[Rfam]
RNA sequence: UGAUCGAUGAAGACUCCCAGCAAAACAUUCCUUGGAAAAGCUGAACAAAAUGAGUGAAAGCUCACUACCGUCGUUCUCAUCGAGACUGAGGUCC
Numbered sequence: 001u002g003a004u005c006g007a008u009g010a011a012g013a014c015u016c017c018c019a020g021c022a023a024a025a026c027a028u029u030c031c032u033u034g035g036a037a038a039a040g041c042u043g044a045a046c047a048a049a050a051u052g053a054g055u056g057a058a059a060g061c062u063c064a065c066u067a068c069c070g071u072c073g074u075u076c077u078c079a080u081c082g083a084g085a086c087u088g089a090g091g092u093c094c
Stems, first nucleotide, its partner, number of pairs: 002093004026056005032048003
This 94-nucleotide RNA from Jaculus jaculus belongs to the Rfam family "Small nucleolar RNA SNORD116". Rfam links the family to the GO terms nucleolus and RNA processing. For this family Rfam cites "Identification of brain-specific and imprinted small nucleolar RNA genes exhibiting an unusual genomic organization" (Cavaille et al., Proc Natl Acad Sci U S A, 2000). Pairs were carried over by alignment from the consensus structure, which was predicted with PFOLD.